[Rfam]
Source information: Rfam assigns this 60-nucleotide RNA sequence from Bifidobacterium jacchi to the family "msiK RNA". A search with the family's covariance model found it, with a score of 55 bits. The family's RNA type in Rfam is cis-regulatory element.

RNA sequence: CGAAGUAAUCCCUUUACUACGGAUCGUGAGACACGUACCUGUCUCUGAAAGGAUGAAUAU
Numbered sequence: 001c002g003a004a005g006u007a008a009u010c011c012c013u014u015u016a017c018u019a020c021g022g023a024u025c026g027u028g029a030g031a032c033a034c035g036u037a038c039c040u041g042u043c044u045c046u047g048a049a050a051g052g053a054u055g056a057a058u059a060u
Stems, first nucleotide, its partner, number of pairs: 010052002013049004028045006